[Rfam]
RNA sequence: GUCUCUGUGGCGCAAGGGGUUAGCGUCUGGCUGUUAACCAGAAGGAUGGUGGUUCGAACCCACCCAGGGACG
Numbered sequence: 001g002u003c004u005c006u007g008u009g010g011c012g013c014a015a016g017g018g019g020u021u022a023g024c025g026u027c028u029g030g031c032u033g034u035u036a037a038c039c040a041g042a043a044g045g046a047u048g049g050u051g052g053u054u055c056g057a058a059c060c061c062a063c064c065c066a067g068g069g070a071c072g
Base pairs, nucleotide, nucleotide: 001071002070003069004068005067006066007065010024011023026042027041028040029039030038048064049063050062051061052060
Shown here is a 72-nucleotide RNA from Naja naja, a member of the family "tRNA". The family's RNA type in Rfam is transfer RNA. Pairs were carried over by alignment from the consensus structure, which is taken from published work. The organism belongs to Naja, within Eukaryota.